[Rfam]
RNA: Ruegeria cis8 sRNA
Organism: Phaeobacter sp. CECT 5382
RNA sequence: ACCUCCAGCACCUUGGCGAUAUAGGGGAUCAGGGGCAGGUUCAGGAUCAGCAGAACCAGAUUACCGAUGUACAUCGAGAUGAUGACCGCCCAAAAGAUUUGUGGAUCGUCCAGCAUCAGGCGCGGCCC
Numbered sequence: 001a002c003c004u005c006c007a008g009c010a011c012c013u014u015g016g017c018g019a020u021a022u023a024g025g026g027g028a029u030c031a032g033g034g035g036c037a038g039g040u041u042c043a044g045g046a047u048c049a050g051c052a053g054a055a056c057c058a059g060a061u062u063a064c065c066g067a068u069g070u071a072c073a074u075c076g077a078g079a080u081g082a083u084g085a086c087c088g089c090c091c092a093a094a095a096g097a098u099u100u101g102u103g104g105a106u107c108g109u110c111c112a113g114c115a116u117c118a119g120g121c122g123c124g125g126c127c128c
Stems, first nucleotide, its partner, number of pairs: 003018001005016004026128002029125002034121001036119001038114001040112001043109001045107004050102005057096001061093002072084004